[Rfam]
RNA: Group II catalytic intron D1-D4-4
Organism: Ruminococcus sp. 5_1_39BFAA
RNA sequence: CGGUGGGUGGAAGCCCCAUCAAAUAAGCUGCUAACCACAGCAUUUGAAGCGAGUCUUGAGUCUGUCGCGGAAACGUUGCAGGCUAAGCGUAGACAGCAAGAUAACAGGGAUAGCUAUUGAGCACCGAAA
Numbered sequence: 001c002g003g004u005g006g007g008u009g010g011a012a013g014c015c016c017c018a019u020c021a022a023a024u025a026a027g028c029u030g031c032u033a034a035c036c037a038c039a040g041c042a043u044u045u046g047a048a049g050c051g052a053g054u055c056u057u058g059a060g061u062c063u064g065u066c067g068c069g070g071a072a073a074c075g076u077u078g079c080a081g082g083c084u085a086a087g088c089g090u091a092g093a094c095a096g097c098a099a100g101a102u103a104a105c106a107g108g109g110a111u112a113g114c115u116a117u118u119g120a121g122c123a124c125c126g127a128a129a
Stems, first nucleotide, its partner, number of pairs: 020046005054093003059084006068075002101111002114126001